Record summary:
Bacterial RNase P class B: a 294-nucleotide RNA from Mycoplasma miroungirhinis.

[Rfam]
RNA sequence: UAGCUUGGCCAAUUGCUGCGAAUUUCGUAGAGGAAAAUCCCCACUGGCACUUUCUGAGAUGAAAGUAGUGUUCAUGCUGAAUCUAAUAAAUUCAGGUAGUAAUAAAUACUAACAACUAGUGACACAGAAACAAAGUCUGCUAUUUAGCAAGAGUGAAAAGGUUAAACUUCAUGAGUCAGAAACAAAAAUUAUGGUAUUGGAGCCCGAAAAAGGGAAAUGAACUAAUUUCGGGAGAAUAUCUUAUUCUAGAUAAAUAAUUGGCGCCUUUAUAGGUACAAAAAGGGGUUUAUAGAG
Number, nucleotide and partner (000 for none) at each position: 001u000002a000003g000004c294005u293006u292007g290008g262009c261010c260011a259012a258013u257014u256015g000016c030017u029018g028019c027020g026021a025022a000023u000024u000025u021026c020027g019028u018029a017030g016031a000032g000033g000034a000035a288036a287037a286038u000039c285040c284041c283042c282043a000044c179045u178046g177047g176048c175049a066050c065051u064052u063053u062054c061055u000056g000057a000058g000059a000060u000061g054062a053063a052064a051065g050066u049067a000068g000069u000070g000071u000072u174073c173074a172075u171076g170077c095078u094079g093080a092081a091082u090083c000084u000085a000086a000087u000088a000089a000090a082091u081092u080093c079094a078095g077096g113097u111098a110099g109100u108101a107102a000103u000104a000105a000106a000107u101108a100109c099110u098111a097112a000113c096114a169115a168116c000117u000118a000119g167120u166121g163122a162123c161124a000125c000126a000127g000128a000129a000130a000131c000132a000133a000134a000135g000136u152137c151138u150139g148140c147141u146142a000143u000144u000145u000146a141147g140148c139149a000150a138151g137152a136153g000154u000155g000156a000157a000158a000159a000160g000161g123162u122163u121164a000165a000166a120167c119168u115169u114170c076171a075172u074173g073174a072175g048176u047177c046178a045179g044180a000181a000182a000183c199184a198185a197186a000187a000188a000189u000190u000191a000192u000193g000194g000195u000196a000197u185198u184199g183200g000201a000202g000203c232204c231205c230206g229207a228208a227209a226210a000211a000212g000213g000214g000215a000216a000217a000218u000219g000220a000221a000222c000223u000224a000225a000226u209227u208228u207229c206230g205231g204232g203233a247234g246235a245236a244237u243238a242239u000240c000241u000242u238243a237244u236245u235246c234247u233248a000249g000250a000251u000252a000253a000254a000255u000256a014257a013258u012259u011260g010261g009262c008263g000264c273265c272266u271267u000268u000269a000270u000271a266272g265273g264274u000275a000276c000277a000278a000279a000280a000281a000282g042283g041284g040285g039286u037287u036288u035289a000290u007291a000292g006293a005294g004

A reference for the family is Frank and Pace (1998), "Ribonuclease P: unity and diversity in a tRNA processing ribozyme", Annu Rev Biochem. The source organism's lineage runs through Bacteria, Bacillati, Mycoplasmatales, Mycoplasmataceae and Mycoplasma. Clan: RNaseP clan. Rfam's curators write: Ribonuclease P (RNase P) is a ubiquitous endoribonuclease, found in archaea, bacteria and eukarya as well as chloroplasts and mitochondria.